RNA sequence: GGCGUUUUUCGCGGCAGCGGAGCUCGACCGCAAGAUCAAGUAGAGGUACCCACCGCGGUGCUGGUCGACUAUAUCGAUCAGCACCGCGACCGGUUCGGGGUCGAGCCGAUCUGCGCUGUGGUGAAGGACGCCGGCGUGCAGAUCGCCCCG
Numbered sequence: 001g002g003c004g005u006u007u008u009u010c011g012c013g014g015c016a017g018c019g020g021a022g023c024u025c026g027a028c029c030g031c032a033a034g035a036u037c038a039a040g041u042a043g044a045g046g047u048a049c050c051c052a053c054c055g056c057g058g059u060g061c062u063g064g065u066c067g068a069c070u071a072u073a074u075c076g077a078u079c080a081g082c083a084c085c086g087c088g089a090c091c092g093g094u095u096c097g098g099g100g101u102c103g104a105g106c107c108g109a110u111c112u113g114c115g116c117u118g119u120g121g122u123g124a125a126g127g128a129c130g131c132c133g134g135c136g137u138g139c140a141g142a143u144c145g146c147c148c149c150g
Base pairs, nucleotide, nucleotide: 017056018055019054020053096150097149098148099147100146107145108144110142111141112140113139114138115137116136
Record summary: A member of the RNA family "ALIL pseudoknot" from Gordonia sihwensis, 150 nucleotides long. The match comes from Rfam's covariance-model search (62 bits). Gene Ontology term of the family: positive regulation of translational frameshifting.